[Rfam]
Nucleotides: 181
Base pairs, nucleotide, nucleotide: 001098002097003096010092011091012090013089014088015087016086017085022037024036025035026034027033038077039076040075044073045071046070047069051064052063053062054061055060101179102178103177104176105175110124112123113122114121115120125167126166127165131163133160134159
Number, partner (000 for none) and nucleotide at each position: 001098g002097c003096g004000g005000a006000u007000g008000a009000c010092g011091a012090c013089a014088a015087a016086g017085g018000g019000a020000g021000a022037g023000a024036u025035c026034g027033u028000u029000u030000u031000a032000a033027a034026c035025g036024g037022c038077g039076c040075c041000g042000a043000a044073g045071g046070a047069g048000c049000a050000a051064a052063c053062u054061g055060u056000u057000u058000g059000u060055g061054c062053a063052g064051u065000g066000a067000a068000u069047c070046u071045c072000u073044c074000a075040g076039g077038c078000a079000a080000a081000a082000a083000g084000a085017c086016u087015u088014u089013u090012g091011u092010c093000u094000g095000a096003c097002g098001c099000a100000u101179c102178u103177c104176u105175g106000g107000a108000g109000a110124g111000a112123g113122c114121u115120c116000u117000u118000u119000a120115g121114a122113g123112c124110c125167a126166c127165c128000c129000a130000c131163g132000a133160a134159g135000a136000c137000a138000u139000u140000c141000u142000c143000c144000g145000c146000g147000a148000u149000g150000g151000a152000g153000a154000a155000g156000a157000a158000a159134c160133u161000u162000u163131c164000u165127g166126g167125u168000u169000g170000u171000a172000g173000g174000a175105c176104a177103g178102a179101g180000g181000a
This 181-nucleotide RNA sequence from Alteribacillus bidgolensis belongs to the Rfam family "glycine-GGAnGA riboswitch aptamer". Rfam describes the family as follows. glycine-GGAnGA riboswitch is a variant of glycine riboswitch that have in common a U69A change. This riboswitch is associate with genes that encode either saccharopine dehydrogenase or amino acid transporters and other genes with not predicted function. The family's consensus secondary structure is taken from published work. On this family, see Weinberg et al., Proc Natl Acad Sci U S A 2017: "Bioinformatic analysis of riboswitch structures uncovers variant classes with altered ligand specificity".